[Rfam]
The family of this 227-nucleotide RNA sequence from Salmo salar is "Small nucleolar RNA SNORA73 family".
U17 (SNORA73A and SNORA73B) also known as E1 belongs to the H/ACA class of small nucleolar RNAs (snoRNAs). Vertebrate U17 is intron-encoded and ranges in length from 200-230 nucleotides, longer than most snoRNAs. It is one of the most abundant snoRNAs in human cells and is essential for the cleavage of pre-rRNA within the 5' external transcribed spacer (ETS).
The organism belongs to Salmo, within Eukaryota.
By type it is an H/ACA-box small nucleolar RNA.
Rfam links the family to the GO terms nucleolus and RNA processing.
The family is grouped with related families in Rfam's "snR30-U17 clan".
The match comes from Rfam's covariance-model search (168 bits).
On this family, see Enright et al., RNA 1996: "5'ETS rRNA processing facilitated by four small RNAs: U14, E3, U17, and U3".

RNA sequence: CCGAUGCGGACAUCCUGUGAGGUUGCUCUUGCAUGGCUCUGUCCUUGUGGCGUAUGGGAGCGUAGCACUACGGUGCUGUGACGUAGAGUCCCGUUUCCACAGCAUCGUAGAGCGAGCUUUGUCCCCCGGCCCUCUGGGCUGAUGAAGACGGGCGUUCUGUAUAUUCCUACAUCUUCCCAGAGCUCCUUGGGCCAUGACUGGGGGGCUAAACCAUGCAUUGCACAGCU
Numbered sequence: 001c002c003g004a005u006g007c008g009g010a011c012a013u014c015c016u017g018u019g020a021g022g023u024u025g026c027u028c029u030u031g032c033a034u035g036g037c038u039c040u041g042u043c044c045u046u047g048u049g050g051c052g053u054a055u056g057g058g059a060g061c062g063u064a065g066c067a068c069u070a071c072g073g074u075g076c077u078g079u080g081a082c083g084u085a086g087a088g089u090c091c092c093g094u095u096u097c098c099a100c101a102g103c104a105u106c107g108u109a110g111a112g113c114g115a116g117c118u119u120u121g122u123c124c125c126c127c128g129g130c131c132c133u134c135u136g137g138g139c140u141g142a143u144g145a146a147g148a149c150g151g152g153c154g155u156u157c158u159g160u161a162u163a164u165u166c167c168u169a170c171a172u173c174u175u176c177c178c179a180g181a182g183c184u185c186c187u188u189g190g191g192c193c194a195u196g197a198c199u200g201g202g203g204g205g206c207u208a209a210a211c212c213a214u215g216c217a218u219u220g221c222a223c224a225g226c227u
Stems, first nucleotide, its partner, number of pairs: 002107006008044005014036002019028003047100004056092004062084002065079002158217005173205006182192004